[Rfam]
RNA sequence: UGGAUCAAUGAUGGUAACUGCCGGUGUAUGAGUCCCAGGUGACGAGUAAUCCGUGUGGUCCAA
Numbered sequence: 001u002g003g004a005u006c007a008a009u010g011a012u013g014g015u016a017a018c019u020g021c022c023g024g025u026g027u028a029u030g031a032g033u034c035c036c037a038g039g040u041g042a043c044g045a046g047u048a049a050u051c052c053g054u055g056u057g058g059u060c061c062a063a
Base pairs, nucleotide, nucleotide: 002061003060004059005058006057
RNA: Small nucleolar RNA SNORD113/SNORD114 family